A member of the RNA family "HDV ribozyme from F. prausnitzii" from Qingrenia yutianensis, 74 nucleotides long. The base pairs follow the family's consensus structure, which is taken from published work. The literature on the family includes a 2009 paper in Science by Webb et al., "Widespread occurrence of self-cleaving ribozymes".
RNA sequence: GCUGCUCGUAAUAAUAUCACACACCUCUUCGUGGUGAGCAGUAGGCAACGCUGAUAUGACGGCUAAGUGUGAGA
Numbered sequence: 001g002c003u004g005c006u007c008g009u010a011a012u013a014a015u016a017u018c019a020c021a022c023a024c025c026u027c028u029u030c031g032u033g034g035u036g037a038g039c040a041g042u043a044g045g046c047a048a049c050g051c052u053g054a055u056a057u058g059a060c061g062g063c064u065a066a067g068u069g070u071g072a073g074a
Stems, first nucleotide, its partner, number of pairs: 001042007023035003049061002052058002